Shown here is a 279-nucleotide RNA from Thermothielavioides terrestris, a member of the family "Fungal signal recognition particle RNA".
The family's RNA type in Rfam is non-coding RNA gene.
Taxonomically the source falls in Thermothielavioides terrestris (Eukaryota, Pezizomycotina, leotiomyceta, Chaetomiaceae).
It scores 150 bits against the family's covariance model.
[Rfam]
RNA sequence: CGGCUGUAAUGGUCAGUUUGGUUCUGGAGGCACUCGAUUUUCUCGCUGUCUCUGCUCCAUCCCCAUAAGAACCCCCCCGCGGCGCCCAGCGCGAAUCUCGCGGUGGCCGCCCACUCGCACGGGUAACCUGCGAUGCUGCGCGCGGCCCUAAGCAAUGAAGAUAACACUUGAGGGAGGCUUCACUCUGCAGAGGCAUCUUCACCGUCAGAUGGCGUGCUGGAUGACGAUCGCUGGGGGCAUGGGGCAGAGCGGCGAGAUGGGGAUGUCAACUGGACUUUU
Numbered sequence: 001c002g003g004c005u006g007u008a009a010u011g012g013u014c015a016g017u018u019u020g021g022u023u024c025u026g027g028a029g030g031c032a033c034u035c036g037a038u039u040u041u042c043u044c045g046c047u048g049u050c051u052c053u054g055c056u057c058c059a060u061c062c063c064c065a066u067a068a069g070a071a072c073c074c075c076c077c078c079g080c081g082g083c084g085c086c087c088a089g090c091g092c093g094a095a096u097c098u099c100g101c102g103g104u105g106g107c108c109g110c111c112c113a114c115u116c117g118c119a120c121g122g123g124u125a126a127c128c129u130g131c132g133a134u135g136c137u138g139c140g141c142g143c144g145g146c147c148c149u150a151a152g153c154a155a156u157g158a159a160g161a162u163a164a165c166a167c168u169u170g171a172g173g174g175a176g177g178c179u180u181c182a183c184u185c186u187g188c189a190g191a192g193g194c195a196u197c198u199u200c201a202c203c204g205u206c207a208g209a210u211g212g213c214g215u216g217c218u219g220g221a222u223g224a225c226g227a228u229c230g231c232u233g234g235g236g237g238c239a240u241g242g243g244g245c246a247g248a249g250c251g252g253c254g255a256g257a258u259g260g261g262g263a264u265g266u267c268a269a270c271u272g273g274a275c276u277u278u279u
Base pairs, nucleotide, nucleotide: 002014003013004012020276021275022274023273024272026270029267030266031265032264034262035261037258038257039256045253046252047251051248052247053246054245055244056243057242058241059240060239074237075236077233079231080230081229083226084225086220087219088218089217090216091215092214093213095210096209097208098207100205101204102203103202105147107145108144109143110142112140115133116132117131118130119129121128122127148152156201157200158199159198160197161196162195167192168191169190174185175184176183